[Rfam]
RNA sequence: GCGUUGGUUUAGCUCAGUGGUUACUUCUGUGAUCCCUGAAAAAUCAACCUUUCAUGGUCACCUCGGUGCCAGAGAUCGAACCACGGGCGCUGUCCAACGUUUUA
Numbered sequence: 001g002c003g004u005u006g007g008u009u010u011a012g013c014u015c016a017g018u019g020g021u022u023a024c025u026u027c028u029g030u031g032a033u034c035c036c037u038g039a040a041a042a043a044u045c046a047a048c049c050u051u052u053c054a055u056g057g058u059c060a061c062c063u064c065g066g067u068g069c070c071a072g073a074g075a076u077c078g079a080a081c082c083a084c085g086g087g088c089g090c091u092g093u094c095c096a097a098c099g100u101u102u103u104a
Stems, first nucleotide, its partner, number of pairs: 002099006012088004017084004025074005
Dot-bracket structure: .((((((....((((.((((....(((((........................................)))))......)))))))).....)))))).....

This 104-nucleotide RNA belongs to the Rfam family "Vault RNA".
The family's consensus secondary structure is taken from published work.
It is one of the family's seed sequences.